[Rfam]
RNA sequence: GAUGCCGGACUUGCCGGCACCACGGGUGCGGCAGCCCUGCUGCACCUGUGACGUUGGGGCGGAGAGGAAGCGGCUAUUUCUACGCUCAGUGCUCAGAACAGUGGGCGCUAAGAAUGGUUUGUAGCCGGACAUCA
Numbered sequence: 001g002a003u004g005c006c007g008g009a010c011u012u013g014c015c016g017g018c019a020c021c022a023c024g025g026g027u028g029c030g031g032c033a034g035c036c037c038u039g040c041u042g043c044a045c046c047u048g049u050g051a052c053g054u055u056g057g058g059g060c061g062g063a064g065a066g067g068a069a070g071c072g073g074c075u076a077u078u079u080c081u082a083c084g085c086u087c088a089g090u091g092c093u094c095a096g097a098a099c100a101g102u103g104g105g106c107g108c109u110a111a112g113a114a115u116g117g118u119u120u121g122u123a124g125c126c127g128g129a130c131a132u133c134a
Base pairs, nucleotide, nucleotide: 003061004060005059006058007055008054022049023048024047025046072126073125074124080117081116082115085112086111090107091106092105093104094103095102